[Rfam]
RNA: Molybdenum/Tungsten riboswitch aptamer (Moco RNA motif)
Organism: Psychromonas sp. B3M02
RNA sequence: UAUAUAAUUUAGCUCCGAGCUUUUAUCACUAAGUUUAACAUGUUUUUUGUGAAAUAUGUGAUACUAGCCGCUUAACUAAGUGUUUGGUUAAGAAGGGUAAACUUAGAAAUGGGUUUGCCUCCCGUGUUUGGAAAGGAACUGACCAUGCAAUUAG
Numbered sequence: 001u002a003u004a005u006a007a008u009u010u011a012g013c014u015c016c017g018a019g020c021u022u023u024u025a026u027c028a029c030u031a032a033g034u035u036u037a038a039c040a041u042g043u044u045u046u047u048u049g050u051g052a053a054a055u056a057u058g059u060g061a062u063a064c065u066a067g068c069c070g071c072u073u074a075a076c077u078a079a080g081u082g083u084u085u086g087g088u089u090a091a092g093a094a095g096g097g098u099a100a101a102c103u104u105a106g107a108a109a110u111g112g113g114u115u116u117g118c119c120u121c122c123c124g125u126g127u128u129u130g131g132a133a134a135g136g137a138a139c140u141g142a143c144c145a146u147g148c149a150a151u152u153a154g
Stems, first nucleotide, its partner, number of pairs: 011140002014137003019068003024063006033055004071092008095120011121131002